Rfam assigns this 112-nucleotide RNA from Cucurbita maxima to the family "Small nucleolar RNA Z152/R70/R12/". For this family Rfam cites "Identification of 66 box C/D snoRNAs in Arabidopsis thaliana: extensive gene duplications generated multiple isoforms predicting new ribosomal RNA 2'-O-methylation sites" (Barneche et al., J Mol Biol, 2001). It scores 83 bits against the family's covariance model. The family's consensus secondary structure was predicted with PFOLD. Rfam classes the family as a C/D-box small nucleolar RNA. Its family is annotated with RNA processing and nucleolus in the Gene Ontology.
RNA sequence: GAAGCAAUGAUGAUGUUAAGCACUUGGACGUGUUGUGGGCAGUGGCCAUAACUUUUGAUCGAGUUAUGCCGUGAGCCUGUAUAUUAAACGACUUCUCCUUCCACUGAGCUUC
Numbered sequence: 001g002a003a004g005c006a007a008u009g010a011u012g013a014u015g016u017u018a019a020g021c022a023c024u025u026g027g028a029c030g031u032g033u034u035g036u037g038g039g040c041a042g043u044g045g046c047c048a049u050a051a052c053u054u055u056u057g058a059u060c061g062a063g064u065u066a067u068g069c070c071g072u073g074a075g076c077c078u079g080u081a082u083a084u085u086a087a088a089c090g091a092c093u094u095c096u097c098c099u100u101c102c103a104c105u106g107a108g109c110u111u112c
Base pairs, nucleotide, nucleotide: 001112002111003110004109005108